[Rfam]
RNA sequence: AAAACUGUCAGACCGUCGGUCUACCGAGCAAUAUCAGCCGCUCGGUGGAAGAUCUUUCCUUCGUCGU
Numbered sequence: 001a002a003a004a005c006u007g008u009c010a011g012a013c014c015g016u017c018g019g020u021c022u023a024c025c026g027a028g029c030a031a032u033a034u035c036a037g038c039c040g041c042u043c044g045g046u047g048g049a050a051g052a053u054c055u056u057u058c059c060u061u062c063g064u065c066g067u
Stems, first nucleotide, its partner, number of pairs: 004064002011057002015053003020049010

A member of the RNA family "mir-2774 microRNA precursor family" from Bombyx mori, 67 nucleotides long. On this family, see Liu et al., BMC Genomics 2010: "MicroRNAs of Bombyx mori identified by Solexa sequencing". Rfam links the family to the GO terms RISC complex and miRNA-mediated post-transcriptional gene silencing.